[Rfam]
RNA sequence: CAUUGAGGGGAUGAGAAAGUUGUCGGAAAAAAUGAUGUCGAUCGAAAAUACUUCCAGACUACAAUUAUCUGAUCAAUG
Numbered sequence: 001c002a003u004u005g006a007g008g009g010g011a012u013g014a015g016a017a018a019g020u021u022g023u024c025g026g027a028a029a030a031a032a033u034g035a036u037g038u039c040g041a042u043c044g045a046a047a048a049u050a051c052u053u054c055c056a057g058a059c060u061a062c063a064a065u066u067a068u069c070u071g072a073u074c075a076a077u078g
Base pairs, nucleotide, nucleotide: 001078002077003076004075005074006073